[Rfam]
RNA sequence: CGAGACAAAGGUAAACCCGUCGCAAGGCGGGGACACAAAGCCGCCGGUCCCCGGAUUCAAGAACGACAAUGGGGGACAGCGGGGCUGCCGCUG
Numbered sequence: 001c002g003a004g005a006c007a008a009a010g011g012u013a014a015a016c017c018c019g020u021c022g023c024a025a026g027g028c029g030g031g032g033a034c035a036c037a038a039a040g041c042c043g044c045c046g047g048u049c050c051c052c053g054g055a056u057u058c059a060a061g062a063a064c065g066a067c068a069a070u071g072g073g074g075g076a077c078a079g080c081g082g083g084g085c086u087g088c089c090g091c092u093g
Base pairs, nucleotide, nucleotide: 001093004089011036012035016031017030018029019028020027021026034079039086040085041084042083044082045081046080047077048076049075050074051073052072

Rfam assigns this 93-nucleotide RNA from Thioalkalivibrio paradoxus to the family "c-di-GMP-I-GGC riboswitch aptamer". NCBI's taxonomy places the organism under Bacteria, Gammaproteobacteria, Ectothiorhodospiraceae, Thioalkalivibrio, Thioalkalivibrio paradoxus. The family has 40 seed sequences and 1,298 matches in Rfam 15.1.